[Rfam]
RNA sequence: UCACAAGUUCAAGGCUCAAGCAGAAGUGUUUACAGCAUGGCCUGUCAGAUUCCAAUGAAUCUGUGAAUUCUGCU
Numbered sequence: 001u002c003a004c005a006a007g008u009u010c011a012a013g014g015c016u017c018a019a020g021c022a023g024a025a026g027u028g029u030u031u032a033c034a035g036c037a038u039g040g041c042c043u044g045u046c047a048g049a050u051u052c053c054a055a056u057g058a059a060u061c062u063g064u065g066a067a068u069u070c071u072g073c074u
Stems, first nucleotide, its partner, number of pairs: 013042004019074007026038003046063007